This 194-nucleotide RNA sequence from Enterobacteriaceae bacterium RIT714 belongs to the Rfam family "Yersinia sRNA 251". The base pairs follow the family's consensus structure, which was predicted with RNAfold. The organism belongs to Enterobacteriaceae, within Bacteria.
[Rfam]
RNA sequence: AGUAGGCGUUCAGCGUGCGUUGACACAACGCCGAACGCACGCAAUCGUCUUUGGUGAACCGCACCACGCCCACCAUAUCGUCUUCAACAAAACGCGCCAUUGCGUCGCUCAGGCCAGAUUUCACGCCCGAUGGCAGGUCGCACUGCGUGAUAUCGCCGUUGACGAUAACGGUGACGUUUUCCCCGAGGCGCGUU
Numbered sequence: 001a002g003u004a005g006g007c008g009u010u011c012a013g014c015g016u017g018c019g020u021u022g023a024c025a026c027a028a029c030g031c032c033g034a035a036c037g038c039a040c041g042c043a044a045u046c047g048u049c050u051u052u053g054g055u056g057a058a059c060c061g062c063a064c065c066a067c068g069c070c071c072a073c074c075a076u077a078u079c080g081u082c083u084u085c086a087a088c089a090a091a092a093c094g095c096g097c098c099a100u101u102g103c104g105u106c107g108c109u110c111a112g113g114c115c116a117g118a119u120u121u122c123a124c125g126c127c128c129g130a131u132g133g134c135a136g137g138u139c140g141c142a143c144u145g146c147g148u149g150a151u152a153u154c155g156c157c158g159u160u161g162a163c164g165a166u167a168a169c170g171g172u173g174a175c176g177u178u179u180u181c182c183c184c185g186a187g188g189c190g191c192g193u194u
Stems, first nucleotide, its partner, number of pairs: 003053004008048001014041006061078001063076001083112002086109001088107001093102002113193002117189001119188004125134003137166004144158002171183001173181002